[Rfam]
RNA sequence: CGUUGCGGAUUUACUCCCCGCAACGGGUGAGGUCGGCACAGCAUACACCGACAGGGCGGGAACG
Dot-bracket structure: ((((((((.........))))))))......(((((...........)))))............
Record summary
This 64-nucleotide sequence belongs to the Rfam family "D12-methyl RNA". The sequence is in the family's curated seed alignment. It is annotated as a small RNA.